[Rfam]
RNA: raiA RNA
RNA sequence: UGCUGUCGGGUCUGUGGUUGAAAGUCGAUGCCAGUCGCAGGCAAAGCGAUCCACGUAAUCCGGUCAAAGUACCGGGGAGCAUGGUGCGGCUUAGAAGUAAGUCCGUCCAGAACUUGAUUCUGAGAGGGUUAGUAGUGGGGCACUGAGGUGUAUGAGCGAAAACUCCGGACGGCGAGUGUGGGGUCAAAGACCAGGUCAGCCGAUUGUU
Numbered sequence: 001u002g003c004u005g006u007c008g009g010g011u012c013u014g015u016g017g018u019u020g021a022a023a024g025u026c027g028a029u030g031c032c033a034g035u036c037g038c039a040g041g042c043a044a045a046g047c048g049a050u051c052c053a054c055g056u057a058a059u060c061c062g063g064u065c066a067a068a069g070u071a072c073c074g075g076g077g078a079g080c081a082u083g084g085u086g087c088g089g090c091u092u093a094g095a096a097g098u099a100a101g102u103c104c105g106u107c108c109a110g111a112a113c114u115u116g117a118u119u120c121u122g123a124g125a126g127g128g129u130u131a132g133u134a135g136u137g138g139g140g141c142a143c144u145g146a147g148g149u150g151u152a153u154g155a156g157c158g159a160a161a162a163c164u165c166c167g168g169a170c171g172g173c174g175a176g177u178g179u180g181g182g183g184u185c186a187a188a189g190a191c192c193a194g195g196u197c198a199g200c201c202g203a204u205u206g207u208u
Base pairs, nucleotide, nucleotide: 002207003206005204006203007202008201009200012199013198014197015193016192017191018190019189028179029178030177031041033091034090035089036088037087038086039085050084051083059075060074062072082186103172104171105170106169107168108122109121110120111119112118126165127164128163129162135157136156141150142149143148